[Rfam]
Source information: The record is a 111-nucleotide RNA sequence from Oerskovia sp. Root918, which matches "SAM (S-adenosyl methionine) riboswitch aptamer" in Rfam. NCBI's taxonomy places the organism under Bacteria, Bacillati, Actinomycetota, Actinomycetes, Oerskovia.
RNA sequence: GGUGAAGAGCGCCAGCGCCAAGACCCGGCUCGCUGGCCAGCAACCCUUCGAUGUGACGGGGUGCUCCGGGCAGGACCUGACCGCGCCGACAGGUCGCGGUAAGCACACGAC
Numbered sequence: 001g002g003u004g005a006a007g008a009g010c011g012c013c014a015g016c017g018c019c020a021a022g023a024c025c026c027g028g029c030u031c032g033c034u035g036g037c038c039a040g041c042a043a044c045c046c047u048u049c050g051a052u053g054u055g056a057c058g059g060g061g062u063g064c065u066c067c068g069g070g071c072a073g074g075a076c077c078u079g080a081c082c083g084c085g086c087c088g089a090c091a092g093g094u095c096g097c098g099g100u101a102a103g104c105a106c107a108c109g110a111c
Stems, first nucleotide, its partner, number of pairs: 001077003009038001011037006021030002039065003044061003048056002080100006086093002